[Rfam]
RNA sequence: ACUGAAUCAGUUUGUAAAGAUAUUCCCGAAAUACGCGGUCUGAUGUCUUGGGAGGAUAGCACCCUUGGCGCGGAAAUCGCUGCCAAAGUGACCGGAUAAAUGGGAGGCAUUGUUAUCGGGUUACUUGUAUGGGUUCGACACGCGAAACUGGAAAAGCAAGGCUUCGGCCUUGCUUUUUUAU
Numbered sequence: 001a002c003u004g005a006a007u008c009a010g011u012u013u014g015u016a017a018a019g020a021u022a023u024u025c026c027c028g029a030a031a032u033a034c035g036c037g038g039u040c041u042g043a044u045g046u047c048u049u050g051g052g053a054g055g056a057u058a059g060c061a062c063c064c065u066u067g068g069c070g071c072g073g074a075a076a077u078c079g080c081u082g083c084c085a086a087a088g089u090g091a092c093c094g095g096a097u098a099a100a101u102g103g104g105a106g107g108c109a110u111u112g113u114u115a116u117c118g119g120g121u122u123a124c125u126u127g128u129a130u131g132g133g134u135u136c137g138a139c140a141c142g143c144g145a146a147a148c149u150g151g152a153a154a155a156g157c158a159a160g161g162c163u164u165c166g167g168c169c170u171u172g173c174u175u176u177u178u179u180a181u
Stems, first nucleotide, its partner, number of pairs: 001178001006024001009021001011019001034144004045057004060137001061134004067084003070080003086126008155174008
RNA: Alphaproteobacterial sRNA ar9